[Rfam]
RNA sequence: CAUCACAAGAAGAAGCACCCGCUUCUCACCUGAUUGACACAUUCUUGUAGUUGGCAGGUUAACCGUACAUUUUUAAUUAUUUCCUUAAAUGUUCGAGUGUGGGUGCCGUCUGUGGUGCCCGCACUUUUUGUUUGCC
Dot-bracket structure: ..........((((((....)))))).(((.....(((((......)).)))....)))......................................((((((((((......)))))))))).............
Numbered sequence: 001c002a003u004c005a006c007a008a009g010a011a012g013a014a015g016c017a018c019c020c021g022c023u024u025c026u027c028a029c030c031u032g033a034u035u036g037a038c039a040c041a042u043u044c045u046u047g048u049a050g051u052u053g054g055c056a057g058g059u060u061a062a063c064c065g066u067a068c069a070u071u072u073u074u075a076a077u078u079a080u081u082u083c084c085u086u087a088a089a090u091g092u093u094c095g096a097g098u099g100u101g102g103g104u105g106c107c108g109u110c111u112g113u114g115g116u117g118c119c120c121g122c123a124c125u126u127u128u129u130g131u132u133u134g135c136c
Stems, first nucleotide, its partner, number of pairs: 011026006028059003036052003039048002098123010